Shown here is a 94-nucleotide RNA sequence from Pseudoruegeria aquimaris, a member of the family "Rhodo-rpoB RNA".
It scores 59 bits against the family's covariance model.
The family's consensus secondary structure is taken from published work.
Taxonomically the source falls in Pseudoruegeria (Bacteria, Pseudomonadati, Alphaproteobacteria, Roseobacteraceae).
The family's RNA type in Rfam is cis-regulatory element.

[Rfam]
RNA sequence: CGAUCGGGAGGGCCCGGUGGGACGGAGCCCAGGCAUAGAUCGAACCCCCUUGUUUCGUGUGCGGCGCGGUGCUGUGGCCCCGGCAGACUCGUGC
Dot-bracket structure: (((((....(((((((......))).)))).......))))).....................(((((...(((.........)))...)))))